[Rfam]
RNA: MAT2A 3'UTR stem loop A
Organism: Sarcophilus harrisii
RNA sequence: GCUCUUUCCCUCAGACUUAUUGGCACUGGUUACAGAAAAGCCUUCAAGCUCUGAAGAAAAGGGC
Numbered sequence: 001g002c003u004c005u006u007u008c009c010c011u012c013a014g015a016c017u018u019a020u021u022g023g024c025a026c027u028g029g030u031u032a033c034a035g036a037a038a039a040g041c042c043u044u045c046a047a048g049c050u051c052u053g054a055a056g057a058a059a060a061g062g063g064c
Base pairs, nucleotide, nucleotide: 001064002063003062004061010056011055012053013052014051015050018046022042023041024040